Source information:
DsrA RNA: an 84-nucleotide RNA sequence from Citrobacter koseri. Rfam classes the family as a small RNA. About the family: DsrA RNA regulates both transcription, by overcoming transcriptional silencing by the nucleoid-associated H-NS protein, and translation, by promoting efficient translation of the stress sigma factor, RpoS. These two activities of DsrA can be separated by mutation: the first of three stem-loops of the 85 nucleotide RNA is necessary for RpoS translation but not for anti-H-NS action, while the second stem-loop is essential for antisilencing and less critical for RpoS translation. The third stem-loop, which behaves as a transcription terminator, can be substituted by the trp transcription terminator without loss of either DsrA function. The sequence of the first stem-loop of DsrA is complementary with the upstream leader portion of RpoS messenger RNA, suggesting that pairing of DsrA with the RpoS message might be important for translational regulation.
[Rfam]
RNA sequence: CGCACAUCAGAUUUUCUGGUGUAACGAAUUUUCAAGUGCUUCUUGCAUAAGCAAGUUUGAUCCCGGCUCUGCGAGCCGGGAUUU
Numbered sequence: 001c002g003c004a005c006a007u008c009a010g011a012u013u014u015u016c017u018g019g020u021g022u023a024a025c026g027a028a029u030u031u032u033c034a035a036g037u038g039c040u041u042c043u044u045g046c047a048u049a050a051g052c053a054a055g056u057u058u059g060a061u062c063c064c065g066g067c068u069c070u071g072c073g074a075g076c077c078g079g080g081a082u083u084u
Base pairs, nucleotide, nucleotide: 004022005021006020007019008018009017010016026058027057028056029054030053031051032050034048036046037045038044060082061081062080063079064078065077066076068074069073
Dot-bracket structure: ...(((((((.....)))))))...(((((((.(.(((.....))).).)).)).))).(((((((.((...)).)))))))..

The source organism's lineage runs through Bacteria, Pseudomonadati, Enterobacterales, Citrobacter and Citrobacter koseri.